[Rfam]
RNA: TPP riboswitch aptamer (THI element)
Organism: Paracidovorax anthurii
RNA sequence: GCGUCUGCUCCGGGGUGCACGUAGGAAUCGAUUCCUGGCCGUGCUGAGACGGCGGACCUGACCGCCGGAACCGCGAACUUGAUCUGGUUAGUACCAGCGUAAGAAGAGCUGCAGUCAGUGUG
Numbered sequence: 001g002c003g004u005c006u007g008c009u010c011c012g013g014g015g016u017g018c019a020c021g022u023a024g025g026a027a028u029c030g031a032u033u034c035c036u037g038g039c040c041g042u043g044c045u046g047a048g049a050c051g052g053c054g055g056a057c058c059u060g061a062c063c064g065c066c067g068g069a070a071c072c073g074c075g076a077a078c079u080u081g082a083u084c085u086g087g088u089u090a091g092u093a094c095c096a097g098c099g100u101a102a103g104a105a106g107a108g109c110u111g112c113a114g115u116c117a118g119u120g121u122g
Base pairs, nucleotide, nucleotide: 007109008108009107010106011073012072013071016067017044018043019042020041021040051066052065053064054063055062078103079102080101081100084097085096086095087094